RNA sequence: CAGGGUACCCUUUGACCCUCCUUACUUCAACCAAAUGAACUAAAAUUUUAGAAUCACACAACUUUUUGAAAAACUAGUUCAUUUGUUUGAACUUAGGAGGGUCAAAGGAUACCCUA
Numbered sequence: 001c002a003g004g005g006u007a008c009c010c011u012u013u014g015a016c017c018c019u020c021c022u023u024a025c026u027u028c029a030a031c032c033a034a035a036u037g038a039a040c041u042a043a044a045a046u047u048u049u050a051g052a053a054u055c056a057c058a059c060a061a062c063u064u065u066u067u068g069a070a071a072a073a074c075u076a077g078u079u080c081a082u083u084u085g086u087u088u089g090a091a092c093u094u095a096g097g098a099g100g101g102u103c104a105a106a107g108g109a110u111a112c113c114c115u116a
Stems, first nucleotide, its partner, number of pairs: 002115006009108014024093001026091005032085011